[Rfam]
RNA sequence: GGCUUUCUGAGUCUGUGCUGAGAUUUCGUCAGACACCGUUCCACCAGGGGUGACGUGACUUCCGAGAUAAGUGAAGCA
Numbered sequence: 001g002g003c004u005u006u007c008u009g010a011g012u013c014u015g016u017g018c019u020g021a022g023a024u025u026u027c028g029u030c031a032g033a034c035a036c037c038g039u040u041c042c043a044c045c046a047g048g049g050g051u052g053a054c055g056u057g058a059c060u061u062c063c064g065a066g067a068u069a070a071g072u073g074a075a076g077c078a
Base pairs, nucleotide, nucleotide: 002077003076004075005074006073008071011068012067013066016064017063020061021060022059024058025057027055028054029053030052

Overview
This 78-nucleotide RNA from Schistosoma japonicum belongs to the Rfam family "mir-3492 microRNA precursor family". The source organism's lineage runs through Eukaryota, Spiralia, Rhabditophora, Neodermata and Schistosoma. The match comes from Rfam's covariance-model search (54 bits).